[Rfam]
RNA sequence: AAAUAACCAUUUUCUAUUUCACAUUGUUAUUGUCUGAUCCACCAGCAAUAACAAUGUGAAACAGAAAAUGGUUAUUAU
Numbered sequence: 001a002a003a004u005a006a007c008c009a010u011u012u013u014c015u016a017u018u019u020c021a022c023a024u025u026g027u028u029a030u031u032g033u034c035u036g037a038u039c040c041a042c043c044a045g046c047a048a049u050a051a052c053a054a055u056g057u058g059a060a061a062c063a064g065a066a067a068a069u070g071g072u073u074a075u076u077a078u
Base pairs, nucleotide, nucleotide: 001078003076005073006072007071008070009069010068012066013065014064015063017061018060019059022056023055024054025053026052027051028048